[Rfam]
Annotation:
The record is a 57-nucleotide sequence from Skermania sp. ID1734, which matches "F6 TB sRNA" in Rfam. NCBI's taxonomy places the organism under Bacteria, Actinomycetota, Mycobacteriales, Gordoniaceae, Skermania. For this family Rfam cites "Identification of small RNAs in Mycobacterium tuberculosis" (Arnvig and Young, Mol Microbiol, 2009). A search with the family's covariance model found it, with a score of 59 bits. The base pairs follow the family's consensus structure, which is taken from published work.

RNA sequence: GGGGUGGCCCUGUGCUGCUGCCUGACCCCCGACCCGGCAGCCGCACGGGGCCUUUCA
Number, nucleotide and partner (000 for none) at each position: 001g000002g056003g055004g054005u000006g000007g051008c050009c049010c048011u047012g046013u045014g044015c043016u000017g041018c040019u039020g038021c037022c036023u000024g000025a000026c000027c000028c000029c000030c000031g000032a000033c000034c000035c000036g022037g021038c020039a019040g018041c017042c000043g015044c014045a013046c012047g011048g010049g009050g008051c007052c000053u000054u004055u003056c002057a000